Source information:
The record is a 59-nucleotide RNA, which matches "msiK RNA" in Rfam.

RNA sequence: CCAACACUCCUUCCACUCGGAUCGUCCGGCACGUUCCUGCCGGUAGAAGGGAUGCAUCA
Numbered sequence: 001c002c003a004a005c006a007c008u009c010c011u012u013c014c015a016c017u018c019g020g021a022u023c024g025u026c027c028g029g030c031a032c033g034u035u036c037c038u039g040c041c042g043g044u045a046g047a048a049g050g051g052a053u054g055c056a057u058c059a
Base pairs, nucleotide, nucleotide: 009050010049011048012047013046015044026043027042028041029040030039031038

Description:
The match comes from Rfam's covariance-model search (52 bits).